[Rfam]
RNA sequence: CCCAGGACUUUCGCCCAGGGCUAUAGUCUACCGUGGCUUCGCCACU
Numbered sequence: 001c002c003c004a005g006g007a008c009u010u011u012c013g014c015c016c017a018g019g020g021c022u023a024u025a026g027u028c029u030a031c032c033g034u035g036g037c038u039u040c041g042c043c044a045c046u
Stems, first nucleotide, its partner, number of pairs: 001020003005016002008013001033045005